[Rfam]
Rfam assigns this 133-nucleotide sequence from Sphingomonas oleivorans to the family "Manganese Mn2+ riboswitch aptamer (yybP-ykoY)".
Pairs were carried over by alignment from the consensus structure.
Rfam describes the family as follows. This RNA was originally discovered in E. coli during a large scale screen and was named SraF. The family was later found to exist upstream of related families of protein genes in many bacteria, including the the yybP and ykoK genes in B. subtilis.
NCBI's taxonomy places the organism under Bacteria, Pseudomonadati, Pseudomonadota, Alphaproteobacteria, Sphingomonas.
RNA sequence: AUGCGUGUCAUCUGGGGAGUAGCCAGCCGUCCGCCGGACGGGCCCCUGCGUCAACAUGCUUGGCCGAGAGGCCAUGGCGCGGGGGGAGCGGAAUACCGUUCGGGCGAGACCAAUGGCGUCGGGCUUCCGCUCC
Numbered sequence: 001a002u003g004c005g006u007g008u009c010a011u012c013u014g015g016g017g018a019g020u021a022g023c024c025a026g027c028c029g030u031c032c033g034c035c036g037g038a039c040g041g042g043c044c045c046c047u048g049c050g051u052c053a054a055c056a057u058g059c060u061u062g063g064c065c066g067a068g069a070g071g072c073c074a075u076g077g078c079g080c081g082g083g084g085g086g087a088g089c090g091g092a093a094u095a096c097c098g099u100u101c102g103g104g105c106g107a108g109a110c111c112a113a114u115g116g117c118g119u120c121g122g123g124c125u126u127c128c129g130c131u132c133c
Stems, first nucleotide, its partner, number of pairs: 027041003043084004048080006061074005085133007